This 64-nucleotide RNA from Humibacter ginsenosidimutans belongs to the Rfam family "Fluoride riboswitch aptamer (crcB RNA motif)". The base pairs follow the family's consensus structure, which is taken from published work. The source organism's lineage runs through Bacteria, Bacillati, Actinomycetes, Microbacteriaceae and Humibacter. A search with the family's covariance model found it, with a score of 43 bits.
[Rfam]
RNA sequence: GUGGAACACGGCGAUGAAGCUCGCCGCAACCGCGGAACGAACCGCUGAUGGCUUCUCCCCGCAC
Numbered sequence: 001g002u003g004g005a006a007c008a009c010g011g012c013g014a015u016g017a018a019g020c021u022c023g024c025c026g027c028a029a030c031c032g033c034g035g036a037a038c039g040a041a042c043c044g045c046u047g048a049u050g051g052c053u054u055c056u057c058c059c060c061g062c063a064c
Base pairs, nucleotide, nucleotide: 010025011024012023013022016055017054018053019052020051021050032045033044034043035042